[Rfam]
RNA sequence: GUCGGCGUCGUCACCCUCCAGCCGACGACCGUUCCCGUCGUCACCGAACUCCCCGGCCGUACCAAUGCUUUCCUCGUCGCGCAAGUGCGCGCACGGGUCGAUGGCAUCGUGCUGCGUCGCGAGUUCACCGAGGGUAGCGAGGUCAAGGCCGGCCAGCGUCUAUACAAGAUCGA
Numbered sequence: 001g002u003c004g005g006c007g008u009c010g011u012c013a014c015c016c017u018c019c020a021g022c023c024g025a026c027g028a029c030c031g032u033u034c035c036c037g038u039c040g041u042c043a044c045c046g047a048a049c050u051c052c053c054c055g056g057c058c059g060u061a062c063c064a065a066u067g068c069u070u071u072c073c074u075c076g077u078c079g080c081g082c083a084a085g086u087g088c089g090c091g092c093a094c095g096g097g098u099c100g101a102u103g104g105c106a107u108c109g110u111g112c113u114g115c116g117u118c119g120c121g122a123g124u125u126c127a128c129c130g131a132g133g134g135u136a137g138c139g140a141g142g143u144c145a146a147g148g149c150c151g152g153c154c155a156g157c158g159u160c161u162a163u164a165c166a167a168g169a170u171c172g173a
Base pairs, nucleotide, nucleotide: 004053005052007050008047009046010045011043013041014040018037021034023031024030055150056149057148058147059143060142063139066136067135068134072133074131075130079092080091081090082089094121095120097118099116100115102114103113104112105111106110157172158171159169160168161167
Dot-bracket structure: ...((.(((((.((...(..(.((.....))..)..)..)).).)))..).)).((((((..(..(((...(.((...((((......)))).((.(.((.(((((...))))))).).))........)).))))..)..))...))))......(((((.....))).)).